[Rfam]
RNA: Bacterial RNase P class A
RNA sequence: GGAGAAGAUCAGAUGAUCGCUGGCAGAAUUUAUCUGCUGGAGGAAAGUCCGAGCUCCACAGGGCAGGAUGGUCGCUAACGGCGACUGGGGGCGACCCUAAGGAAAGUGCCACAGAAAAUAUACCGCCAGGCGUUUACGCCAGGUAAGGGUGAAAAGGCGAGGUAAGAGCUCACCGCUUUCCUGGCGACAGGAAAGGCAUGGUAAACCCCAUCCGGAGCAAGACCAAAUAGGAGAACGUUAAGGGCGGCCCGCCCGAUGUUCUCGGGUAGUGUCGCUAGAGGCGUGAGGCAACUCACGUCCCAGAUGAAUGAUCAUCACCACGCGCAGGGUAACCUAAUCGUGGGACAGGACUCGGCUUAUGAUCUUCUCCCGUG
Number, nucleotide and partner (000 for none) at each position: 001g370002g369003a368004g367005a366006a365007g364008a363009u362010c361011a360012g316013a315014u314015g313016a312017u311018c310019g000020c040021u039022g038023g037024c036025a035026g034027a033028a000029u000030u000031u000032a000033u027034c026035u025036g024037c023038u022039g021040g020041a000042g000043g000044a000045a358046a357047g356048u000049c355050c354051g353052a352053g351054c217055u216056c215057c214058a000059c000060a000061g250062g249063g248064c247065a000066g213067g212068a211069u210070g209071g085072u084073c083074g082075c081076u000077a000078a000079c000080g000081g075082c074083g073084a072085c071086u100087g098088g097089g096090g095091g000092c000093g000094a000095c090096c089097c088098u087099a000100a086101g208102g207103a000104a000105a000106g206107u205108g202109c201110c200111a000112c000113a000114g000115a000116a000117a000118a000119u000120a000121u000122a000123c148124c147125g144126c143127c142128a000129g140130g139131c138132g137133u000134u000135u000136a000137c132138g131139c130140c129141a000142g127143g126144u125145a000146a000147g124148g123149g000150u000151g000152a000153a000154a000155a000156g174157g173158c000159g171160a170161g169162g000163u000164a000165a000166g000167a000168g000169c161170u160171c159172a000173c157174c156175g197176c195177u194178u193179u192180c191181c190182u189183g188184g000185c000186g000187a000188c183189a182190g181191g180192a179193a178194a177195g176196g000197c175198a000199u000200g110201g109202u108203a000204a000205a107206c106207c102208c101209c070210a069211u068212c067213c066214g057215g056216a055217g054218c000219a000220a000221g273222a272223c271224c269225a000226a000227a000228u000229a000230g000231g263232a262233g261234a260235a259236c258237g000238u000239u000240a000241a000242g254243g253244g252245c251246g000247g064248c063249c062250c061251g245252c244253c243254c242255g000256a000257u000258g236259u235260u234261c233262u232263c231264g000265g000266g000267u000268a000269g224270u000271g223272u222273c221274g000275c000276u000277a000278g000279a000280g299281g298282c297283g296284u295285g294286a293287g292288g000289c000290a000291a000292c287293u286294c285295a284296c283297g282298u281299c280300c000301c000302a000303g000304a000305u000306g000307a000308a000309u000310g018311a017312u016313c015314a014315u013316c012317a000318c000319c000320a000321c000322g000323c000324g000325c000326a000327g000328g000329g000330u000331a000332a000333c000334c000335u000336a000337a000338u000339c000340g000341u000342g000343g000344g000345a000346c000347a000348g000349g000350a000351c053352u052353c051354g050355g049356c047357u046358u045359a000360u011361g010362a009363u008364c007365u006366u005367c004368u003369c002370c001371c000372g000373u000374g000